Record summary:
The record is a 76-nucleotide RNA sequence from Myotis myotis, which matches "mir-9229 microRNA precursor family" in Rfam. The organism belongs to Myotis, within Eukaryota.

RNA sequence: GGAAAAACCCUAUGGGGCAGGACUUGUGUCAGUAGGGCUCUGGUGCUCACUGAGUCUGCCCCUUGAGUGUUUCACU
Dot-bracket structure: (..(((..(.((.((((((.(((.....(((((.((((....)).)).)))))))))))))).)).)..)))..).